[Rfam]
RNA: U11 spliceosomal RNA
Organism: Chara braunii
RNA sequence: AAAAAGGGCUAGUUAUCUAUAUAUGCCAUGCACGGUUUAGGCUGUGCACUGUGUGGACAUCAAGACAUAUGGCUGGCAAAAUUUAUGAACUCCUGGAUUUAGGGUUGGCACGCUUUGCCGACCCUCCAA
Numbered sequence: 001a002a003a004a005a006g007g008g009c010u011a012g013u014u015a016u017c018u019a020u021a022u023a024u025g026c027c028a029u030g031c032a033c034g035g036u037u038u039a040g041g042c043u044g045u046g047c048a049c050u051g052u053g054u055g056g057a058c059a060u061c062a063a064g065a066c067a068u069a070u071g072g073c074u075g076g077c078a079a080a081a082u083u084u085a086u087g088a089a090c091u092c093c094u095g096g097a098u099u100u101a102g103g104g105u106u107g108g109c110a111c112g113c114u115u116u117g118c119c120g121a122c123c124c125u126c127c128a129a
Stems, first nucleotide, its partner, number of pairs: 008077005014028001017025001029048008049072007095127003103123008